[Rfam]
RNA sequence: AUGAGUGCCUGUCCAACCCAUUUUUUGAUGCAUUGCAGCGGUCUCGCUACCGGUCACGUCGUGGCCGGAAAUGCGCUUCCGGGGCAGCGUGUCAGCACAGCAGUCAAGCCGCUUGCCUCGUCAGUCGGGGCGGCGGCUUUUUUG
Numbered sequence: 001a002u003g004a005g006u007g008c009c010u011g012u013c014c015a016a017c018c019c020a021u022u023u024u025u026u027g028a029u030g031c032a033u034u035g036c037a038g039c040g041g042u043c044u045c046g047c048u049a050c051c052g053g054u055c056a057c058g059u060c061g062u063g064g065c066c067g068g069a070a071a072u073g074c075g076c077u078u079c080c081g082g083g084g085c086a087g088c089g090u091g092u093c094a095g096c097a098c099a100g101c102a103g104u105c106a107a108g109c110c111g112c113u114u115g116c117c118u119c120g121u122c123a124g125u126c127g128g129g130g131c132g133g134c135g136g137c138u139u140u141u142u143u144g
Stems, first nucleotide, its partner, number of pairs: 007036002010032003014027002038088002041085002050082004090106002097104002107138006114132006